About this RNA
The family of this 128-nucleotide RNA from Microcebus murinus is "Small nucleolar RNA SNORA64/SNORA10 family". From the family's description: This family belongs to the H/ACA class of small nucleolar RNAs (snoRNAs) which act as guides in the the modification of uridines to pseudouridines. This family includes the human snoRNAs U64 and ACA10 and mouse MBI-29. On this family, see Narayanan et al., EMBO J 1999: "Nucleolar localization signals of box H/ACA small nucleolar RNAs". Pairs were carried over by alignment from the consensus structure, which is taken from published work. Clan: SNORA64 clan.
[Rfam]
RNA sequence: ACUCUCUCAUUUCUUCAUAGUCGCACUUGUCUUCAUCAGUGUGACUUCAUAACAGGGAAAGAGAGAAAUGAUCUCAGGAACUCAGACUGGCCUUAUGGUGGCCUCUUUCCUUGAAAGGCUCAACAGGU
Numbered sequence: 001a002c003u004c005u006c007u008c009a010u011u012u013c014u015u016c017a018u019a020g021u022c023g024c025a026c027u028u029g030u031c032u033u034c035a036u037c038a039g040u041g042u043g044a045c046u047u048c049a050u051a052a053c054a055g056g057g058a059a060a061g062a063g064a065g066a067a068a069u070g071a072u073c074u075c076a077g078g079a080a081c082u083c084a085g086a087c088u089g090g091c092c093u094u095a096u097g098g099u100g101g102c103c104u105c106u107u108u109c110c111u112u113g114a115a116a117g118g119c120u121c122a123a124c125a126g127g128u
Stems, first nucleotide, its partner, number of pairs: 002065006011057004019046008073118001074114001076112003084106003089103004
Dot-bracket structure: .((((((...((((....((((((((............)))))))).......))))..)))))).......((.(((.....(((..((((.......)))))))...))).)...)..........